[Rfam]
RNA sequence: AAGCAUGAUAGAGGCGCGGCCAACAUCAGUAGCUUUCCGUUAUAUAUGGUGCGCUAGGGAGCACGGGGAAGCGAAAGGGGAGGCCGCCGAGGAGGCGCCGGGGCGACCUAGGCUGCGGGCUUCCGGGCCAGUGGACAACAUCUGCUGGACUGUCGCUGUGAAGCGGAGAGCUGUCAUGACA
Numbered sequence: 001a002a003g004c005a006u007g008a009u010a011g012a013g014g015c016g017c018g019g020c021c022a023a024c025a026u027c028a029g030u031a032g033c034u035u036u037c038c039g040u041u042a043u044a045u046a047u048g049g050u051g052c053g054c055u056a057g058g059g060a061g062c063a064c065g066g067g068g069a070a071g072c073g074a075a076a077g078g079g080g081a082g083g084c085c086g087c088c089g090a091g092g093a094g095g096c097g098c099c100g101g102g103g104c105g106a107c108c109u110a111g112g113c114u115g116c117g118g119g120c121u122u123c124c125g126g127g128c129c130a131g132u133g134g135a136c137a138a139c140a141u142c143u144g145c146u147g148g149a150c151u152g153u154c155g156c157u158g159u160g161a162a163g164c165g166g167a168g169a170g171c172u173g174u175c176a177u178g179a180c181a
Stems, first nucleotide, its partner, number of pairs: 006176006016087006024079001032072007091124006098117001125151002128148008153166005
RNA: Lysine riboswitch aptamer
Organism: Corynebacterium vitaeruminis